Nucleotides: 102
Stems, first nucleotide, its partner, number of pairs: 005034004014029005037067001039065001042062003046058005068097001070095011
Number, partner (000 for none) and nucleotide at each position: 001000a002000a003000g004000a005034c006033c007032u008031u009000u010000a011000a012000a013000c014029u015028a016027g017026u018025c019000c020000a021000g022000a023000g024000a025018g026017g027016c028015u029014g030000u031008a032007a033006g034005g035000a036000g037067a038000g039065a040000u041000u042062u043061a044060g045000u046058u047057a048056u049055a050054a051000u052000a053000u054050u055049u056048g057047u058046a059000u060044c061043u062042g063000u064000u065039u066000a067037u068097g069000c070095a071094g072093a073092c074091u075090u076089c077088u078087u079086a080085c081000a082000g083000u084000u085080g086079u087078a088077a089076g090075a091074a092073g093072u094071c095070u096000u097068u098000u099000u100000u101000u102000a